[Rfam]
Rfam assigns this 124-nucleotide sequence from Brassica napus to the family "MIR9563 microRNA precursor family". The organism belongs to Brassica, within Eukaryota.
RNA sequence: AUGCUCUAAGAACCGUCUCUUAACUUUUAACUAAAAAAGCUAAGAACCGGCUCUUAAAUAAGAUAUUUAAGAAUCGGUUCUUAGCUUUUUUAGUUAAAAGUUAAGAGACGGAUUCUUAUAUUCU
Numbered sequence: 001a002u003g004c005u006c007u008a009a010g011a012a013c014c015g016u017c018u019c020u021u022a023a024c025u026u027u028u029a030a031c032u033a034a035a036a037a038a039g040c041u042a043a044g045a046a047c048c049g050g051c052u053c054u055u056a057a058a059u060a061a062g063a064u065a066u067u068u069a070a071g072a073a074u075c076g077g078u079u080c081u082u083a084g085c086u087u088u089u090u091u092a093g094u095u096a097a098a099a100g101u102u103a104a105g106a107g108a109c110g111g112a113u114u115c116u117u118a119u120a121u122u123c124u
Stems, first nucleotide, its partner, number of pairs: 001124001003122001005120001007118006013111026040084007
It scores 111 bits against the family's covariance model. Pairs were carried over by alignment from the consensus structure, which was predicted with RNAalifold.